[Rfam]
RNA sequence: GGGGCUCGAUGAUGCGCACACCUCCCCGUGGUGAGCCCUGUCAACGUCGGCAAGGACGGCCAAGAUGCGCAU
Numbered sequence: 001g002g003g004g005c006u007c008g009a010u011g012a013u014g015c016g017c018a019c020a021c022c023u024c025c026c027c028g029u030g031g032u033g034a035g036c037c038c039u040g041u042c043a044a045c046g047u048c049g050g051c052a053a054g055g056a057c058g059g060c061c062a063a064g065a066u067g068c069g070c071a072u
Stems, first nucleotide, its partner, number of pairs: 001039007020032003045058004

Rfam assigns this 72-nucleotide RNA from Tulasnella calospora to the family "HDV ribozyme from F. prausnitzii". The family's consensus secondary structure is taken from published work. The literature on the family includes a 2009 paper in Science by Webb et al., "Widespread occurrence of self-cleaving ribozymes". NCBI's taxonomy places the organism under Eukaryota, Opisthokonta, Fungi, Tulasnella, Tulasnella calospora.